[Rfam]
RNA sequence: GCCCGGAUGGCGGAAUUGGUAGACGCGCACGACUCAAACUCGUGUUCCUAGGAGUGUGGGUUCGAUUCCCACUCCGGGCA
Numbered sequence: 001g002c003c004c005g006g007a008u009g010g011c012g013g014a015a016u017u018g019g020u021a022g023a024c025g026c027g028c029a030c031g032a033c034u035c036a037a038a039c040u041c042g043u044g045u046u047c048c049u050a051g052g053a054g055u056g057u058g059g060g061u062u063c064g065a066u067u068c069c070c071a072c073u074c075c076g077g078g079c080a
Base pairs, nucleotide, nucleotide: 001079002078003077004076005075006074007073010026011025012024028044029043030042031041032040056072057071058070059069060068
Dot-bracket structure: (((((((..(((...........))).(((((.......)))))...........(((((.......)))))))))))).
The family of this 80-nucleotide sequence from Myroides indicus is "tRNA". The match comes from Rfam's covariance-model search (60 bits). It is annotated as a transfer RNA. Transfer RNA (tRNA) molecules are approximately 80 nucleotides in length. Taxonomically the source falls in Myroides (Bacteria, Bacteroidota, Flavobacteriales, Flavobacteriaceae).